[Rfam]
A member of the RNA family "Plastid-psbl-rps4 3UTR RNA" from Punica granatum, 53 nucleotides long. The family's RNA type in Rfam is cis-regulatory element. The base pairs follow the family's consensus structure, which was predicted with LocARNA. The match comes from Rfam's covariance-model search (68 bits).
RNA sequence: UGGAAAGAGAGGGAUUCAAACUCUCGGUACGAAAAGCUCGUACGACGGAUUAG
Numbered sequence: 001u002g003g004a005a006a007g008a009g010a011g012g013g014a015u016u017c018a019a020a021c022u023c024u025c026g027g028u029a030c031g032a033a034a035a036g037c038u039c040g041u042a043c044g045a046c047g048g049a050u051u052a053g
Stems, first nucleotide, its partner, number of pairs: 009025005027043006